The record is an 86-nucleotide RNA from Bacillus coahuilensis, which matches "c-di-GMP-I riboswitch aptamer" in Rfam. The family's consensus secondary structure is taken from published work. The organism belongs to Bacillus coahuilensis, within Bacteria.
RNA sequence: UAUUGAAAAAGGCAAACUUAUCGAAAGAUAAGGACGCAAAGCUACGAGUCUAAAGUCCUGUAGGAUAUGAUAGUCGGGUUGCCAAA
Numbered sequence: 001u002a003u004u005g006a007a008a009a010a011g012g013c014a015a016a017c018u019u020a021u022c023g024a025a026a027g028a029u030a031a032g033g034a035c036g037c038a039a040a041g042c043u044a045c046g047a048g049u050c051u052a053a054a055g056u057c058c059u060g061u062a063g064g065a066u067a068u069g070a071u072a073g074u075c076g077g078g079u080u081g082c083c084a085a086a
Stems, first nucleotide, its partner, number of pairs: 012037002017032006040080004045076003048071003055066004